[Rfam]
RNA: Small nucleolar RNA SNORA64/SNORA10 family
Organism: Alligator mississippiensis
RNA sequence: GCUCUCUCAGCUCUGCUCAGUUGCGUCUGUCUGUCUGAAAUGGUGCAACUGUCGUUAUUGGAGAGAGAAAGGAAAUGAGUUUAAUAUGCACGGCAGUGGGACCUUGUGAUGUGGUCUCCCUGCUCCUUUUCGAACUCGACACUU
Numbered sequence: 001g002c003u004c005u006c007u008c009a010g011c012u013c014u015g016c017u018c019a020g021u022u023g024c025g026u027c028u029g030u031c032u033g034u035c036u037g038a039a040a041u042g043g044u045g046c047a048a049c050u051g052u053c054g055u056u057a058u059u060g061g062a063g064a065g066a067g068a069a070a071g072g073a074a075a076u077g078a079g080u081u082u083a084a085u086a087u088g089c090a091c092g093g094c095a096g097u098g099g100g101a102c103c104u105u106g107u108g109a110u111g112u113g114g115u116c117u118c119c120c121u122g123c124u125c126c127u128u129u130u131c132g133a134a135c136u137c138g139a140c141a142c143u144u
Stems, first nucleotide, its partner, number of pairs: 002071002005068004011063005019050008080134003084130001086127001088125001095121002099117005